[Rfam]
RNA sequence: CUCCUUCUGUCGUGUAUCCUCGACUGACGCGGCCUCGGAUGCUUCAA
Numbered sequence: 001c002u003c004c005u006u007c008u009g010u011c012g013u014g015u016a017u018c019c020u021c022g023a024c025u026g027a028c029g030c031g032g033c034c035u036c037g038g039a040u041g042c043u044u045c046a047a
Stems, first nucleotide, its partner, number of pairs: 009024004031043003
Shown here is a 47-nucleotide RNA sequence, a member of the family "Plastid-ycf3 group II-D1 intron".
It is one of the family's seed sequences.
Rfam describes the family as follows. Plastid rpl16 is a non-coding RNA (ncRNA) recognised in plastids.
The family's consensus secondary structure was predicted with LocARNA.